The record is a 76-nucleotide sequence from Variovorax sp. Root473, which matches "SAH (S-adenosyl-L-homocysteine) riboswitch aptamer" in Rfam. Taxonomically the source falls in Variovorax (Bacteria, Betaproteobacteria, Burkholderiales, Comamonadaceae).

RNA sequence: CUUCCCAAGGAGCGUUGCAGCGGUUCGCCACAGAGGCGAAUCGUCAGGCUUGGGGCGACAACGACGCUCGCCUGUU
Numbered sequence: 001c002u003u004c005c006c007a008a009g010g011a012g013c014g015u016u017g018c019a020g021c022g023g024u025u026c027g028c029c030a031c032a033g034a035g036g037c038g039a040a041u042c043g044u045c046a047g048g049c050u051u052g053g054g055g056c057g058a059c060a061a062c063g064a065c066g067c068u069c070g071c072c073u074g075u076u
Base pairs, nucleotide, nucleotide: 004054005053006052007051008050021043022042023041024040025039026038027037028036029035